The family of this 98-nucleotide sequence from Potamoivirus cam4 is "wcaG RNA". Pairs were carried over by alignment from the consensus structure, which is taken from published work. Rfam classes the family as a cis-regulatory element. It scores 64 bits against the family's covariance model.
RNA sequence: GUUAGUCUCGGUAGGACUAUAAACUAGCCCUGGUGCGGGUGAUGUUCUCGCCGCCUGGUUUCUUACUUCCAGUUAAAGAGUAAGUGGUGGUGCCAAAA
Numbered sequence: 001g002u003u004a005g006u007c008u009c010g011g012u013a014g015g016a017c018u019a020u021a022a023a024c025u026a027g028c029c030c031u032g033g034u035g036c037g038g039g040u041g042a043u044g045u046u047c048u049c050g051c052c053g054c055c056u057g058g059u060u061u062c063u064u065a066c067u068u069c070c071a072g073u074u075a076a077a078g079a080g081u082a083a084g085u086g087g088u089g090g091u092g093c094c095a096a097a098a
Stems, first nucleotide, its partner, number of pairs: 010029003014025002040053002043050002055072004062084006